This 62-nucleotide sequence from Pan troglodytes belongs to the Rfam family "U7 small nuclear RNA". A search with the family's covariance model found it, with a score of 64 bits. Rfam describes the family as follows. Animal histone pre-mRNAs are spliced by a different mechanism than nuclear pre-mRNAs and self-splicing introns. This processing involves the U7 snRNP, which contains only one RNA species: U7. The 5' end of U7 RNA is thought to base-pair to a conserved spacer element downstream of the cleavage site in histone pre-mRNA. This family contains a number of annotated U7 pseudogenes. The base pairs follow the family's consensus structure, which was predicted with PFOLD.
RNA sequence: GCGUGUUACAGCUCUUUUGGAAUUUGUCUAGCAGGUUUUCUGGUUUUCACUGCAAAACCCCC
Numbered sequence: 001g002c003g004u005g006u007u008a009c010a011g012c013u014c015u016u017u018u019g020g021a022a023u024u025u026g027u028c029u030a031g032c033a034g035g036u037u038u039u040c041u042g043g044u045u046u047u048c049a050c051u052g053c054a055a056a057a058c059c060c061c062c
Stems, first nucleotide, its partner, number of pairs: 034059006041052004